[Rfam]
RNA sequence: UCUGGCAAUGAUGACAUGCUUGCCCUCACUGAGAACAGUGUUCAAUAAUGAGCUCACUGUGUGCUCAAAUGAACUGAGCCAGA
Number, nucleotide and partner (000 for none) at each position: 001u083002c082003u081004g080005g079006c078007a000008a000009u000010g000011a000012u000013g000014a000015c000016a000017u000018g000019c000020u000021u000022g000023c000024c000025c000026u000027c000028a000029c000030u000031g000032a000033g000034a000035a000036c000037a000038g000039u000040g000041u000042u000043c000044a000045a000046u000047a000048a000049u000050g000051a000052g000053c000054u000055c000056a000057c000058u000059g000060u000061g000062u000063g000064c000065u000066c000067a000068a000069a000070u000071g000072a000073a000074c000075u000076g000077a000078g006079c005080c004081a003082g002083a001
RNA: Small nucleolar RNA SNORD103/SNORD85